[Rfam]
RNA sequence: CUUAACUUAAAAGCGCCUGAACUAAACCUAAGAGAGAUGGUUUAGUUGACGAGGAGGAGGCUUAUCGAAGUUUCGGCGGAUACCUCCCGGCUGAUGUCACAGCCGUAAAUCUUUACUUAAAAACAGAGAGGUGACUUUCUGAACAAAGUGUAAGGGUUUGACAAUG
Numbered sequence: 001c002u003u004a005a006c007u008u009a010a011a012a013g014c015g016c017c018u019g020a021a022c023u024a025a026a027c028c029u030a031a032g033a034g035a036g037a038u039g040g041u042u043u044a045g046u047u048g049a050c051g052a053g054g055a056g057g058a059g060g061c062u063u064a065u066c067g068a069a070g071u072u073u074c075g076g077c078g079g080a081u082a083c084c085u086c087c088c089g090g091c092u093g094a095u096g097u098c099a100c101a102g103c104c105g106u107a108a109a110u111c112u113u114u115a116c117u118u119a120a121a122a123a124c125a126g127a128g129a130g131g132u133g134a135c136u137u138u139c140u141g142a143a144c145a146a147a148g149u150g151u152a153a154g155g156g157u158u159u160g161a162c163a164a165u166g
Stems, first nucleotide, its partner, number of pairs: 020047008029039001056087005065076004088105006110156007124141007
RNA: glmS glucosamine-6-phosphate activated ribozyme aptamer